The record is a 114-nucleotide RNA sequence from Gasterosteus aculeatus, which matches "Small nucleolar RNA SNORD67" in Rfam.
Lineage of the source: Eukaryota > Clupeocephala > Euacanthomorphacea > Gasterosteales > Gasterosteus.
By type it is a C/D-box small nucleolar RNA.
snoRNA HBII-166 belongs to the C/D family of snoRNAs.
Nucleotides: 114
Base pairs, nucleotide, nucleotide: 006111007110008109025068026067028065029063030062031061032060034058035057036056040053041052042051043050044049
Number, partner (000 for none) and nucleotide at each position: 001000g002000g003000u004000g005000a006111g007110a008109g009000u010000g011000a012000u013000g014000a015000g016000u017000u018000g019000c020000a021000c022000u023000a024000a025068u026067c027000a028065g029063u030062u031061g032060g033000g034058g035057c036056g037000u038000u039000u040053g041052a042051u043050g044049c045000a046000g047000u048000g049044g050043c051042a052041u053040c054000g055000a056036u057035g058034c059000c060032c061031c062030g063029a064000u065028c066000c067026g068025a069000c070000c071000c072000g073000a074000c075000c076000u077000g078000a079000g080000g081000a082000c083000a084000c085000a086000c087000u088000g089000u090000g091000u092000g093000c094000a095000c096000a097000g098000g099000g100000g101000c102000c103000a104000u105000c106000u107000g108000a109008c110007u111006c112000a113000a114000c